[Rfam]
RNA sequence: AAGCAAUAGAAUAGGCGUAUAGGCGCGGUCGGCUACUCCUCCACAGACAGGAGGAUGACGCCUUAUGACAGUAUUCGAAUCACUUAUGCUGAUGCUUACUUUCGGUUUAUUGAUUGUAGCUAUACUGUCAUUUAAACGCAAAUAGACCGCCUGGACAAAGGUAUCGGUCUAUUUGAUCAUUACCCUAUUUGUUGAAGCCUACCGCCCUUAAAGCGGCUAUUGCUAUUGCAUCAAGGAGCUGUGUUGACCGCACGGCUC
Number, nucleotide and partner (000 for none) at each position: 001a231002a000003g229004c228005a227006a000007u225008a224009g223010a000011a221012u000013a200014g199015g198016c197017g000018u195019a000020u153021a152022g151023g150024c149025g148026c000027g147028g000029u145030c000031g000032g000033c000034u058035a000036c000037u000038c054039c053040u052041c051042c000043a000044c000045a000046g000047a000048c000049a000050g000051g041052a040053g039054g038055a000056u000057g000058a034059c000060g000061c000062c000063u000064u000065a000066u000067g129068a128069c127070a126071g125072u124073a123074u000075u000076c000077g000078a000079a000080u000081c094082a093083c000084u000085u000086a000087u000088g000089c000090u000091g000092a000093u082094g081095c000096u000097u000098a000099c000100u000101u000102u000103c000104g121105g120106u119107u118108u000109a000110u000111u000112g000113a000114u000115u000116g000117u000118a107119g106120c105121u104122a000123u073124a072125c071126u070127g069128u068129c067130a000131u000132u000133u000134a000135a000136a000137c000138g000139c000140a000141a000142a000143u000144a000145g029146a000147c027148c025149g024150c023151c022152u021153g020154g000155a000156c000157a000158a174159a000160g000161g000162u000163a000164u000165c000166g000167g000168u000169c000170u000171a000172u000173u000174u158175g000176a000177u000178c000179a000180u000181u000182a000183c000184c000185c000186u000187a000188u000189u000190u000191g000192u000193u000194g000195a018196a000197g016198c015199c014200u013201a000202c216203c215204g214205c213206c000207c000208u000209u000210a000211a000212a000213g205214c204215g203216g202217c000218u000219a000220u000221u011222g000223c009224u008225a007226u000227u005228g004229c003230a000231u001232c000233a000234a000235g000236g258237a257238g256239c255240u254241g253242u252243g251244u250245u000246g000247a000248c000249c000250g244251c243252a242253c241254g240255g239256c238257u237258c236
RNA: BsrG